[Rfam]
Shown here is a 118-nucleotide RNA sequence from Cycloclasticus sp. symbiont of Bathymodiolus heckerae, a member of the family "Group II catalytic intron D1-D4-2". Taxonomically the source falls in Cycloclasticus (Bacteria, Pseudomonadati, Thiotrichales, Piscirickettsiaceae). The pairing is the family consensus, mapped onto this sequence.
RNA sequence: GGUGGUAGGUCUACCGAAGUCUGCGAUCGGAAGCUGGCUUCAAACCACCUCAAGCUGCUUGUAUUAAGAGUACAGGUAGUGAGCGUUGAGGAAAAGCUAACUGAUUAGGUUAGCAGGU
Numbered sequence: 001g002g003u004g005g006u007a008g009g010u011c012u013a014c015c016g017a018a019g020u021c022u023g024c025g026a027u028c029g030g031a032a033g034c035u036g037g038c039u040u041c042a043a044a045c046c047a048c049c050u051c052a053a054g055c056u057g058c059u060u061g062u063a064u065u066a067a068g069a070g071u072a073c074a075g076g077u078a079g080u081g082a083g084c085g086u087u088g089a090g091g092a093a094a095a096g097c098u099a100a101c102u103g104a105u106u107a108g109g110u111u112a113g114c115a116g117g118u
Base pairs, nucleotide, nucleotide: 001015002014003013004012005011016041017040018039019038020037021036023034024033046117048091049090050089051088052087053086054080055079057077058076059075061073062072063071064070096114097113098112099111100110101109